Description: Bacterial RNase P class A: a 358-nucleotide RNA sequence from Bacterioplanes sanyensis. The base pairs follow the family's consensus structure, which is taken from published work. The match comes from Rfam's covariance-model search (331 bits). Ribonuclease P (RNase P) is a ubiquitous endoribonuclease, found in archaea, bacteria and eukarya as well as chloroplasts and mitochondria. Its best characterised activity is the generation of mature 5'-ends of tRNAs by cleaving the 5'-leader elements of precursor-tRNAs. Taxonomically the source falls in Bacterioplanes (Bacteria, Pseudomonadati, Gammaproteobacteria, Oceanospirillaceae).
RNA sequence: GGAGUCGGCCAGACAAUCGCUGCCUGCAUUGCAGGGGGAGGAAAGUCCGGGCUUCACAGGGUAAGGUGCCAGGUAACGCCUGGGGGGCGCGAGCCUACGGAAAGUGCAGCAGAGAGUAGACCGCCGAUGGCUUUGCUAACGCGAAGCACAGGUAAGGGUGAAAGGGUGCGGUAAGAGCGCACCGCGCGACUGGUAACAGCUCGUGGCACGGUAAACCCCACCCGAAGCAAGACCAAAUAGGUUCCCUACAGGCGUGGCCCGCGCUGGGAACGGGUAGGUUGCUGGAGCCUGCGAGUGAUUGCAGGCCUAGACGAAUGAUUGUCCACGACAGAACCCGGCUUAUCGGCCGACUCCACCU
Numbered sequence: 001g002g003a004g005u006c007g008g009c010c011a012g013a014c015a016a017u018c019g020c021u022g023c024c025u026g027c028a029u030u031g032c033a034g035g036g037g038g039a040g041g042a043a044a045g046u047c048c049g050g051g052c053u054u055c056a057c058a059g060g061g062u063a064a065g066g067u068g069c070c071a072g073g074u075a076a077c078g079c080c081u082g083g084g085g086g087g088c089g090c091g092a093g094c095c096u097a098c099g100g101a102a103a104g105u106g107c108a109g110c111a112g113a114g115a116g117u118a119g120a121c122c123g124c125c126g127a128u129g130g131c132u133u134u135g136c137u138a139a140c141g142c143g144a145a146g147c148a149c150a151g152g153u154a155a156g157g158g159u160g161a162a163a164g165g166g167u168g169c170g171g172u173a174a175g176a177g178c179g180c181a182c183c184g185c186g187c188g189a190c191u192g193g194u195a196a197c198a199g200c201u202c203g204u205g206g207c208a209c210g211g212u213a214a215a216c217c218c219c220a221c222c223c224g225a226a227g228c229a230a231g232a233c234c235a236a237a238u239a240g241g242u243u244c245c246c247u248a249c250a251g252g253c254g255u256g257g258c259c260c261g262c263g264c265u266g267g268g269a270a271c272g273g274g275u276a277g278g279u280u281g282c283u284g285g286a287g288c289c290u291g292c293g294a295g296u297g298a299u300u301g302c303a304g305g306c307c308u309a310g311a312c313g314a315a316u317g318a319u320u321g322u323c324c325a326c327g328a329c330a331g332a333a334c335c336c337g338g339c340u341u342a343u344c345g346g347c348c349g350a351c352u353c354c355a356c357c358u
Base pairs, nucleotide, nucleotide: 001354002353003352004351005350006349007348008347009346010345011343012323013322014321015320016319017318018317020038021037023035024034025033026032027031043341044340045339047338048337049336050335051334052227053226054225055224059260060259061258062257065222066221067220068219069083070082071081072080073079084098085096086095087094088093099218100217104216105215106212107211121157122156123153124152125151128148129147165183166182167181168180169179170178184207185205186204187203188202189201190199191198192197231280232279233278234277241271242270243269244268245267246266251265252264253263254262255261287306288305289304290303291302292301293300294299